[Rfam]
RNA sequence: AUCUACACCAACUAUACUUCACCCUAUAUUUCCGUGGUUCAAUCCAUCCAAACAACCAACCAUCAACAUGUCUCCCUGCUCCUGCAACUGCUGCUCCGGCAACUGCAACUCCUGCUCCUGCUCCAGCUGCACCGUAUGUACCCUAUUUUC
Numbered sequence: 001a002u003c004u005a006c007a008c009c010a011a012c013u014a015u016a017c018u019u020c021a022c023c024c025u026a027u028a029u030u031u032c033c034g035u036g037g038u039u040c041a042a043u044c045c046a047u048c049c050a051a052a053c054a055a056c057c058a059a060c061c062a063u064c065a066a067c068a069u070g071u072c073u074c075c076c077u078g079c080u081c082c083u084g085c086a087a088c089u090g091c092u093g094c095u096c097c098g099g100c101a102a103c104u105g106c107a108a109c110u111c112c113u114g115c116u117c118c119u120g121c122u123c124c125a126g127c128u129g130c131a132c133c134g135u136a137u138g139u140a141c142c143c144u145a146u147u148u149u150c
Stems, first nucleotide, its partner, number of pairs: 077101004084094003105130003114121002
This 150-nucleotide RNA from Penicillium citrinum belongs to the Rfam family "A. fumigatus sRNA Afu_254". The literature on the family includes a 2008 paper in Nucleic Acids Res by Jochl et al., "Small ncRNA transcriptome analysis from Aspergillus fumigatus suggests a novel mechanism for regulation of protein synthesis". The base pairs follow the family's consensus structure, which was predicted with WAR. NCBI's taxonomy places the organism under Eukaryota, Fungi, Ascomycota, Eurotiales, Penicillium.